[Rfam]
The record is a 74-nucleotide RNA sequence from Thermogemmata fonticola, which matches "tRNA" in Rfam.
A search with the family's covariance model found it, with a score of 73 bits.
Lineage of the source: Bacteria > Planctomycetia > Gemmatales > Gemmataceae > Thermogemmata.
RNA sequence: GCGCGUAUAGCUCAGUUGGCUAGAGCGCAGCUCUGAUAAAGCUGAGGUCCCUGGUUCGAGUCCAGGUACGCGCA
Numbered sequence: 001g002c003g004c005g006u007a008u009a010g011c012u013c014a015g016u017u018g019g020c021u022a023g024a025g026c027g028c029a030g031c032u033c034u035g036a037u038a039a040a041g042c043u044g045a046g047g048u049c050c051c052u053g054g055u056u057c058g059a060g061u062c063c064a065g066g067u068a069c070g071c072g073c074a
Stems, first nucleotide, its partner, number of pairs: 001073007010026004028044005050066005

Rfam describes the family as follows. Transfer RNA (tRNA) molecules are approximately 80 nucleotides in length.
The family's consensus secondary structure is taken from published work.
Rfam links the family to the GO term triplet codon-amino acid adaptor activity.